[Rfam]
RNA sequence: UCUUCAUUCUGCACACUCUCUCGUCUGUCUGACCGGUGAGAGAGUGUGUGAAAUGAAGAGA
Numbered sequence: 001u002c003u004u005c006a007u008u009c010u011g012c013a014c015a016c017u018c019u020c021u022c023g024u025c026u027g028u029c030u031g032a033c034c035g036g037u038g039a040g041a042g043a044g045u046g047u048g049u050g051a052a053a054u055g056a057a058g059a060g061a
Base pairs, nucleotide, nucleotide: 001059002058003057004056005055006054007053010050012048013047014046015045016044017043019041020040021039022038
About this RNA
The family of this 61-nucleotide RNA from Pristionchus pacificus is "mir-8364 microRNA precursor family". Its family is annotated with RISC complex and miRNA-mediated post-transcriptional gene silencing in the Gene Ontology.